[Rfam]
RNA: c-di-GMP-I riboswitch aptamer
Organism: Paenibacillus sp. N3.4
RNA sequence: UCUGCGAACAGGCAAAUGGCGCGAAAGCGACAGACGCAAAGCUAAAGGGGCUAAUCGGCAUCAGCCGAAUGCUUGCCAGCUACCGAA
Numbered sequence: 001u002c003u004g005c006g007a008a009c010a011g012g013c014a015a016a017u018g019g020c021g022c023g024a025a026a027g028c029g030a031c032a033g034a035c036g037c038a039a040a041g042c043u044a045a046a047g048g049g050g051c052u053a054a055u056c057g058g059c060a061u062c063a064g065c066c067g068a069a070u071g072c073u074u075g076c077c078a079g080c081u082a083c084c085g086a087a
Stems, first nucleotide, its partner, number of pairs: 012037002017032002020029003040081004047077002049073003056067004